[Rfam]
RNA: Mammalian CPEB3 ribozyme
RNA sequence: UGUCUAUCACCAAUGGCCAUAGCAGAGGUGUUCAUAUCACGGCCCCUGUCAGAUUUCAACAAAUCUGCUAAAUUCUGCU
Numbered sequence: 001u002g003u004c005u006a007u008c009a010c011c012a013a014u015g016g017c018c019a020u021a022g023c024a025g026a027g028g029u030g031u032u033c034a035u036a037u038c039a040c041g042g043c044c045c046c047u048g049u050c051a052g053a054u055u056u057c058a059a060c061a062a063a064u065c066u067g068c069u070a071a072a073u074u075c076u077g078c079u
Stems, first nucleotide, its partner, number of pairs: 015044004021079007028040003050067007